This 86-nucleotide RNA sequence from Steatornis caripensis belongs to the Rfam family "Small nucleolar SNORD12/SNORD106". A reference for the family is Huttenhofer et al. (2001), "RNomics: an experimental approach that identifies 201 candidates for novel, small, non-messenger RNAs in mouse", EMBO J. Rfam links the family to the GO terms nucleolus and RNA processing. The organism belongs to Steatornis, within Eukaryota. The match comes from Rfam's covariance-model search (56 bits). The base pairs follow the family's consensus structure, which was predicted with RNAalifold.
RNA sequence: ACUGGUGUAAGUGAUGACUGAAUCUUUCCUAUCAGAGCGACAGUGUUGAUUUCUCACUGUUCAAGCCAGAUGUCUGAUGCACCAAC
Numbered sequence: 001a002c003u004g005g006u007g008u009a010a011g012u013g014a015u016g017a018c019u020g021a022a023u024c025u026u027u028c029c030u031a032u033c034a035g036a037g038c039g040a041c042a043g044u045g046u047u048g049a050u051u052u053c054u055c056a057c058u059g060u061u062c063a064a065g066c067c068a069g070a071u072g073u074c075u076g077a078u079g080c081a082c083c084a085a086c
Stems, first nucleotide, its partner, number of pairs: 003084007